[Rfam]
RNA sequence: AGAAUGACGAUCAAUGAGUCUCGUAUAAUCCUCAGGAAUAUGGCCUGAAAGUUUCUACCACCUGACCGUAAAUUGGGUGACUACGAGGAGAGCACAUCGGAUU
Numbered sequence: 001a002g003a004a005u006g007a008c009g010a011u012c013a014a015u016g017a018g019u020c021u022c023g024u025a026u027a028a029u030c031c032u033c034a035g036g037a038a039u040a041u042g043g044c045c046u047g048a049a050a051g052u053u054u055c056u057a058c059c060a061c062c063u064g065a066c067c068g069u070a071a072a073u074u075g076g077g078u079g080a081c082u083a084c085g086a087g088g089a090g091a092g093c094a095c096a097u098c099g100g101a102u103u
Base pairs, nucleotide, nucleotide: 019088020087021086022085023084024083025082029050032048033047034046035045036044059079060078061077062076063075064074065073
The family of this 103-nucleotide RNA from Brevibacillus panacihumi is "Purine riboswitch aptamer".
Riboswitches are metabolite binding domains within certain messenger RNAs that serve as precision sensors for their corresponding targets.
The source organism's lineage runs through Bacteria, Bacillati, Caryophanales, Brevibacillus and Brevibacillus panacihumi.
On this family, see Mandal et al., Cell 2003: "Riboswitches Control Fundamental Biochemical Pathways in Bacillus subtilis and Other Bacteria".